[Rfam]
RNA sequence: AUUGUACAGUAAAUUCUACCUAAGACUCGGGUGGCUAACGUGCCUUAAUAUCCCGCCGAGGCCAGAAAAACUAAGAGUUUUAUAACUCCAUGUCUUUUUGGCAUGGAGUUUUUAUUUCGGCUGA
Dot-bracket structure: ...........................((((.(((......))).......)))).............................((((((((((.....))))))))))...............
RNA: Ribosomal protein L10 leader
Organism: Lactobacillus gasseri